[Rfam]
RNA sequence: AAGGGUUGUUGACGUUCAUUCCUCCUCCCAGAACGUCGGCAUCAAAGCAACGAACCUCCUCCCUCGUUGCUUUCCUAUCAAACCCGCCGCGAUCCUCCUCCCCGCGGCGGGUUUUUCUU
Dot-bracket structure: ......(((.(((((((.............))))))).)))....(((((((............)))))))........(((((((((((.............))))))))))).....
RNA: Alphaproteobacterial ar14